[Rfam]
Glycine riboswitch aptamer: a 90-nucleotide sequence from Geomicrobium halophilum.

RNA sequence: AUGAUGACAGAGGGAGAGAUCGUUUAAAGCGACGCCGAAGGAGCAAGCCGGUAAGGUGAAUCUCUCAGGCCCAAGUACUUCUGUUUGACG
Numbered sequence: 001a002u003g004a005u006g007a008c009a010g011a012g013g014g015a016g017a018g019a020u021c022g023u024u025u026a027a028a029g030c031g032a033c034g035c036c037g038a039a040g041g042a043g044c045a046a047g048c049c050g051g052u053a054a055g056g057u058g059a060a061u062c063u064c065u066c067a068g069g070c071c072c073a074a075g076u077a078c079u080u081c082u083g084u085u086u087g088a089c090g
Stems, first nucleotide, its partner, number of pairs: 006085008020032004034070003037066002041064003047057002
The organism belongs to Geomicrobium, within Bacteria. The base pairs follow the family's consensus structure.